[Rfam]
RNA: mir-2807 microRNA precursor family
RNA sequence: UUAACUCAAAUUUGUUUGGAGUGGGAACGUUUACUUACGUUUGCCGCUAGGAGCGCUGUUUCAACUCCAUACAAAUUUGAGUUA
Numbered sequence: 001u002u003a004a005c006u007c008a009a010a011u012u013u014g015u016u017u018g019g020a021g022u023g024g025g026a027a028c029g030u031u032u033a034c035u036u037a038c039g040u041u042u043g044c045c046g047c048u049a050g051g052a053g054c055g056c057u058g059u060u061u062c063a064a065c066u067c068c069a070u071a072c073a074a075a076u077u078u079g080a081g082u083u084a
Stems, first nucleotide, its partner, number of pairs: 008078008018068001020066003024062006035051002039047002